Shown here is an 89-nucleotide RNA from Chrysemys picta, a member of the family "Small nucleolar RNA SNORD93". Rfam 15.1 lists 491 matches to the family in 444 species. A search with the family's covariance model found it, with a score of 72 bits. For this family Rfam cites "Purified box C/D snoRNPs are able to reproduce site-specific 2'-O-methylation of target RNA in vitro" (Galardi et al., Mol Cell Biol, 2002). It is annotated as a C/D-box small nucleolar RNA.
[Rfam]
RNA sequence: UGGCCAAGGAUGAAAACCAUGAUCUGAUUGCAUACCUGUUUACAAUGAUAUGCACAAGUAUGAUGGGUUAAAGGAUUUACCUGAGGCCA
Numbered sequence: 001u002g003g004c005c006a007a008g009g010a011u012g013a014a015a016a017c018c019a020u021g022a023u024c025u026g027a028u029u030g031c032a033u034a035c036c037u038g039u040u041u042a043c044a045a046u047g048a049u050a051u052g053c054a055c056a057a058g059u060a061u062g063a064u065g066g067g068u069u070a071a072a073g074g075a076u077u078u079a080c081c082u083g084a085g086g087c088c089a
Stems, first nucleotide, its partner, number of pairs: 002088004